[Rfam]
RNA sequence: ACCGCGUUGGCAGUGUGGUUAGCUGGUUGUUUAAAUUACAACAACAGCCAGUAACAACACUGCCUCCGCGUG
Numbered sequence: 001a002c003c004g005c006g007u008u009g010g011c012a013g014u015g016u017g018g019u020u021a022g023c024u025g026g027u028u029g030u031u032u033a034a035a036u037u038a039c040a041a042c043a044a045c046a047g048c049c050a051g052u053a054a055c056a057a058c059a060c061u062g063c064c065u066c067c068g069c070g071u072g
Base pairs, nucleotide, nucleotide: 003070004069005068006067009064010063012061013060014059015058016057018055019054020053021052024050025049026048027047028046029045030044031043
This 72-nucleotide RNA from Spodoptera exigua belongs to the Rfam family "mir-34 microRNA precursor family". Rfam links the family to the GO terms RISC complex and miRNA-mediated post-transcriptional gene silencing. Human mir-34a was discovered computationally and later experimentally verified. The mature sequence is excised from the 5' arm of the hairpin. For this family Rfam cites "Vertebrate microRNA genes" (Lim et al., Science, 2003). The family has 113 seed sequences and 2,256 matches in Rfam 15.1. Its Rfam clan is "mir-34 clan".